This 83-nucleotide sequence from Streptomyces sp. YIM 130001 belongs to the Rfam family "nrdJ RNA". It scores 69 bits against the family's covariance model. The family's consensus secondary structure is taken from published work. Lineage of the source: Bacteria > Bacillati > Actinomycetota > Streptomycetaceae > Streptomyces.
RNA sequence: ACCUGUCAGGGGCGGCCUCAGCGGCGCUCAGGGCAUCAGAGACAACAUCGUGCCACGGGAAGAACGCGGCACUUCAGGGCGUU
Numbered sequence: 001a002c003c004u005g006u007c008a009g010g011g012g013c014g015g016c017c018u019c020a021g022c023g024g025c026g027c028u029c030a031g032g033g034c035a036u037c038a039g040a041g042a043c044a045a046c047a048u049c050g051u052g053c054c055a056c057g058g059g060a061a062g063a064a065c066g067c068g069g070c071a072c073u074u075c076a077g078g079g080c081g082u083u
Base pairs, nucleotide, nucleotide: 004035005034006033007032010029011028012027013026014025016023050072051071052070053069054068056066057065